[Rfam]
RNA sequence: UAGUGAAGGUCCCAGCAGAGGCUUGAUUUGUAUUUAUGAUAGCCCUCUAACAUUGUAACCUUCACAAAUUGAUUAAGCCAUGUCGUACAAUGCUUGAAUGUUAUUCGAUAUUUCACAGCAUUUCAAUACCGUGGCUACAUUAUA
Numbered sequence: 001u002a003g004u005g006a007a008g009g010u011c012c013c014a015g016c017a018g019a020g021g022c023u024u025g026a027u028u029u030g031u032a033u034u035u036a037u038g039a040u041a042g043c044c045c046u047c048u049a050a051c052a053u054u055g056u057a058a059c060c061u062u063c064a065c066a067a068a069u070u071g072a073u074u075a076a077g078c079c080a081u082g083u084c085g086u087a088c089a090a091u092g093c094u095u096g097a098a099u100g101u102u103a104u105u106c107g108a109u110a111u112u113u114c115a116c117a118g119c120a121u122u123u124c125a126a127u128a129c130c131g132u133g134g135c136u137a138c139a140u141u142a143u144a
Stems, first nucleotide, its partner, number of pairs: 003065007011020001013018001025047002031041004077135006089122002092119003095115004
Rfam assigns this 144-nucleotide RNA from Eragrostis curvula to the family "Small nucleolar RNA snoR145". The source organism's lineage runs through Eukaryota, Magnoliopsida, Chloridoideae, Eragrostideae and Eragrostis. Rfam 15.1 lists 286 matches to the family in 194 species. It scores 66 bits against the family's covariance model. It is annotated as an H/ACA-box small nucleolar RNA. Gene Ontology terms of the family: RNA processing and nucleolus.